[Rfam]
RNA sequence: GUUGUAUGAGGUGGUAGAUUUCGUAGCGACCACACGCCGAUGGUACGACAGGGGAAACCCGAGAGAUGCAGGAGCGGCUACGCCUGCCAUAUAAU
Numbered sequence: 001g002u003u004g005u006a007u008g009a010g011g012u013g014g015u016a017g018a019u020u021u022c023g024u025a026g027c028g029a030c031c032a033c034a035c036g037c038c039g040a041u042g043g044u045a046c047g048a049c050a051g052g053g054g055a056a057a058c059c060c061g062a063g064a065g066a067u068g069c070a071g072g073a074g075c076g077g078c079u080a081c082g083c084c085u086g087c088c089a090u091a092u093a094a095u
Stems, first nucleotide, its partner, number of pairs: 001095008011033005023081005035063001068087005
The family of this 95-nucleotide sequence from Firmicutes bacterium CAG:95 is "skipping-rope RNA". A search with the family's covariance model found it, with a score of 42 bits. The family's consensus secondary structure is taken from published work.